[Rfam]
RNA sequence: UAAAGAUAAAGGCAAACUAUUUGAAAGAAUAGGACGCAAAGCCUAGGGUCUAAGGUUUAGUGGGUUAAUAUACCUACGACUAUGAUCGCCUGGUUACCAAA
Numbered sequence: 001u002a003a004a005g006a007u008a009a010a011g012g013c014a015a016a017c018u019a020u021u022u023g024a025a026a027g028a029a030u031a032g033g034a035c036g037c038a039a040a041g042c043c044u045a046g047g048g049u050c051u052a053a054g055g056u057u058u059a060g061u062g063g064g065u066u067a068a069u070a071u072a073c074c075u076a077c078g079a080c081u082a083u084g085a086u087c088g089c090c091u092g093g094u095u096a097c098c099a100a101a
Base pairs, nucleotide, nucleotide: 012037013036017032018031019030020029021028022027040095041094042093043092045091046090047089048086049085050084055080056079057078
The record is a 101-nucleotide RNA from Cytobacillus depressus, which matches "c-di-GMP-I riboswitch aptamer" in Rfam.
From the family's description: GEMM was predicted in a large-scale screen for bacterial structured RNA regulatory elements. Genes associated with GEMM are involved in a diverse array of functions, including chemotaxis regulation, signal transduction, secretion and chitin.
NCBI's taxonomy places the organism under Bacteria, Bacillati, Bacilli, Bacillaceae, Cytobacillus.